mir-196 microRNA precursor family: a 72-nucleotide RNA sequence from Danio rerio. The base pairs follow the family's consensus structure, which was predicted with PFOLD.
RNA sequence: AGUGAUUUAGGUAGUUUUAUGUUGUUGGGCUCUAUUUUAUAUCCCCGCAACACGAAACUGUCUUAAUUGCCU
Numbered sequence: 001a002g003u004g005a006u007u008u009a010g011g012u013a014g015u016u017u018u019a020u021g022u023u024g025u026u027g028g029g030c031u032c033u034a035u036u037u038u039a040u041a042u043c044c045c046c047g048c049a050a051c052a053c054g055a056a057a058c059u060g061u062c063u064u065a066a067u068u069g070c071c072u
Base pairs, nucleotide, nucleotide: 002070003069004068005067006066007065009063010062011061012060013059014058015057016056017055020052021051022050023049024048025047027045028044029043

Background: The family has 84 seed sequences and 1,813 matches in Rfam 15.1. The literature on the family includes a 2003 paper in Science by Lim et al., "Vertebrate microRNA genes". Rfam's curators put it in the seed alignment.